[Rfam]
RNA sequence: CUACAUUGAUGAUCUCCUGUUUGUGCCAUCGUGUCUGGGCCACUGAUGCUCCGUGAUGGAACUGAGGAUCUGAGUGG
Numbered sequence: 001c002u003a004c005a006u007u008g009a010u011g012a013u014c015u016c017c018u019g020u021u022u023g024u025g026c027c028a029u030c031g032u033g034u035c036u037g038g039g040c041c042a043c044u045g046a047u048g049c050u051c052c053g054u055g056a057u058g059g060a061a062c063u064g065a066g067g068a069u070c071u072g073a074g075u076g077g
Stems, first nucleotide, its partner, number of pairs: 001077004
Source information: A member of the RNA family "Small nucleolar RNA SNORD66" from Pelusios castaneus, 77 nucleotides long. From the family's description: snoRNA HBII-142 is part of the C/D family of snoRNAs. It is the human orthologue of the mouse MBII-142 snoRNA and is predicted to guide 2'O-ribose methylation of small 18S rRNA at residue C1272. Rfam classes the family as a C/D-box small nucleolar RNA. Taxonomically the source falls in Pelusios (Eukaryota, Bilateria, Vertebrata, Tetrapoda). A reference for the family is Huttenhofer et al. (2001), "RNomics: an experimental approach that identifies 201 candidates for novel, small, non-messenger RNAs in mouse", EMBO J.